Rfam assigns this 103-nucleotide RNA from Ruoffia halotolerans to the family "THF (Tetrahydrofolate) riboswitch aptamer". Tetrahydrofolate (THF) riboswitch was first reported for Ames et al. as an RNA motif in 5' untranslated (5'-UTR)regions of folate transport and biosynthesis genes in Firmicutes genomes. Lineage of the source: Bacteria > Bacillota > Bacilli > Lactobacillales > Ruoffia. The literature on the family includes a 2010 paper in Chem Biol by Ames et al., "A eubacterial riboswitch class that senses the coenzyme tetrahydrofolate".
Nucleotides: 103
Base pairs, nucleotide, nucleotide: 003101004100005099010091011090012089013088014087015086016085017084018083019081020080021079025054026053028052029051030050031049032048033047034046038097039096040095041094042093058078059077060076061075062074063073064072065071
Number, partner (000 for none) and nucleotide at each position: 001000a002000a003101c004100a005099g006000a007000g008000u009000a010091a011090a012089a013088a014087a015086u016085a017084a018083g019081c020080g021079u022000g023000a024000a025054g026053u027000g028052u029051u030050c031049u032048u033047a034046g035000a036000u037000g038097g039096g040095a041094u042093g043000u044000u045000g046034c047033u048032a049031a050030g051029a052028a053026a054025c055000g056000a057000a058078a059077c060076u061075u062074g063073g064072u065071u066000c067000a068000c069000u070000g071065a072064a073063c074062u075061a076060g077059g078058u079021g080020c081019g082000a083018u084017u085016u086015a087014u088013u089012u090011u091010u092000g093042c094041a095040u096039u097038c098000g099005c100004u101003g102000c103000a